RNA: Bacterial RNase P class A
Organism: Planctomycetales bacterium ZRK34
RNA sequence: GUGUGCGGGUGUGGCGACCGCGGCCCUUUGGGUCGAGGAAAGUCCGAACACGACAGGACACGGUGGUGGGUAACGCCCACCGCGUCCGGUGGCGACGCCGGGCGUAGGGAAAGUGCCACAGAAAACAAACCGCCGAUGGCCCGCAAGGGCACAGGCAAGGGUGAAAAGGUGCGGUAAGAGCGCACCGCGCGGCUGGUGACAGUCGCGGCACGGUAAACCCCACUGCGUGCAAGGCCAAAUAUGCGGCAAUGAGCUGGUCCGGCUCGAUAAACCGCGGGUAGGCUGCUCGAGUCCGUCGGCAACGGCGGACCCAGAUGAAUGGUCGCCUUCCACCCUGCGUGGAAAACAGAAUUCGGCUUACGGCCCGUACACCCCA
Numbered sequence: 001g002u003g004u005g006c007g008g009g010u011g012u013g014g015c016g017a018c019c020g021c022g023g024c025c026c027u028u029u030g031g032g033u034c035g036a037g038g039a040a041a042g043u044c045c046g047a048a049c050a051c052g053a054c055a056g057g058a059c060a061c062g063g064u065g066g067u068g069g070g071u072a073a074c075g076c077c078c079a080c081c082g083c084g085u086c087c088g089g090u091g092g093c094g095a096c097g098c099c100g101g102g103c104g105u106a107g108g109g110a111a112a113g114u115g116c117c118a119c120a121g122a123a124a125a126c127a128a129a130c131c132g133c134c135g136a137u138g139g140c141c142c143g144c145a146a147g148g149g150c151a152c153a154g155g156c157a158a159g160g161g162u163g164a165a166a167a168g169g170u171g172c173g174g175u176a177a178g179a180g181c182g183c184a185c186c187g188c189g190c191g192g193c194u195g196g197u198g199a200c201a202g203u204c205g206c207g208g209c210a211c212g213g214u215a216a217a218c219c220c221c222a223c224u225g226c227g228u229g230c231a232a233g234g235c236c237a238a239a240u241a242u243g244c245g246g247c248a249a250u251g252a253g254c255u256g257g258u259c260c261g262g263c264u265c266g267a268u269a270a271a272c273c274g275c276g277g278g279u280a281g282g283c284u285g286c287u288c289g290a291g292u293c294c295g296u297c298g299g300c301a302a303c304g305g306c307g308g309a310c311c312c313a314g315a316u317g318a319a320u321g322g323u324c325g326c327c328u329u330c331c332a333c334c335c336u337g338c339g340u341g342g343a344a345a346a347c348a349g350a351a352u353u354c355g356g357c358u359u360a361c362g363g364c365c366c367g368u369a370c371a372c373c374c375c376a
Stems, first nucleotide, its partner, number of pairs: 001372010011361001013327007021035006040359003044356005049229004056260004061225005066080005081107001082105010108220002113218002115214003130160002132156003137153002139150004168186006187209001188207008233284004243275004251265005291310008